A member of the RNA family "Small nucleolar RNA Z161/Z228" from Panicum virgatum, 83 nucleotides long. The base pairs follow the family's consensus structure, which was predicted with PFOLD. NCBI's taxonomy places the organism under Eukaryota, Mesangiospermae, commelinids, Poales, Panicum sect. Hiantes.
RNA sequence: GGGUCUAAUGAUGAGAAUAUGCAAGUAAUCUCACAACGGUCUUCUGAGAACCCUUUUGAUGCAAUAAAUAUUCUCUGAAGCCC
Numbered sequence: 001g002g003g004u005c006u007a008a009u010g011a012u013g014a015g016a017a018u019a020u021g022c023a024a025g026u027a028a029u030c031u032c033a034c035a036a037c038g039g040u041c042u043u044c045u046g047a048g049a050a051c052c053c054u055u056u057u058g059a060u061g062c063a064a065u066a067a068a069u070a071u072u073c074u075c076u077g078a079a080g081c082c083c
Stems, first nucleotide, its partner, number of pairs: 001083004048056003